[Rfam]
RNA sequence: UUGGUAAAAUCUCAGCUGGCAACUGUGAGUCGUUCACUAGCUGCUCUCACAAUGGCCUCUGGGAUUAUGCUAA
Numbered sequence: 001u002u003g004g005u006a007a008a009a010u011c012u013c014a015g016c017u018g019g020c021a022a023c024u025g026u027g028a029g030u031c032g033u034u035c036a037c038u039a040g041c042u043g044c045u046c047u048c049a050c051a052a053u054g055g056c057c058u059c060u061g062g063g064a065u066u067a068u069g070c071u072a073a
Base pairs, nucleotide, nucleotide: 001073002072003071004070005069008066009065010064011063012062013061014060015059018057019056020055021053024051025050026049027048028047029046